RNA sequence: CGUCAAAAUUCGCGCCGAAAUUGCGUGUUCGUCACAGAACGCGUAUACUUUCGCUGUUGACAUAACACAGUGUGCUUUGCGGCCACCAACCGCAUUACGCUGAAAAACCUCGCUCCGGCGGGGUUUUUU
Numbered sequence: 001c002g003u004c005a006a007a008a009u010u011c012g013c014g015c016c017g018a019a020a021u022u023g024c025g026u027g028u029u030c031g032u033c034a035c036a037g038a039a040c041g042c043g044u045a046u047a048c049u050u051u052c053g054c055u056g057u058u059g060a061c062a063u064a065a066c067a068c069a070g071u072g073u074g075c076u077u078u079g080c081g082g083c084c085a086c087c088a089a090c091c092g093c094a095u096u097a098c099g100c101u102g103a104a105a106a107a108c109c110u111c112g113c114u115c116c117g118g119c120g121g122g123g124u125u126u127u128u129u
Stems, first nucleotide, its partner, number of pairs: 002061005011056002017051003022045009068102004078094005103128011

Rfam assigns this 129-nucleotide RNA from Citrobacter rodentium to the family "istR Hfq binding RNA". The match comes from Rfam's covariance-model search (125 bits). The source organism's lineage runs through Bacteria, Gammaproteobacteria, Enterobacterales, Enterobacteriaceae and Citrobacter rodentium. It is annotated as an antitoxin RNA. On this family, see Vogel et al., Curr Biol 2004: "The small RNA IstR inhibits synthesis of an SOS-induced toxic peptide".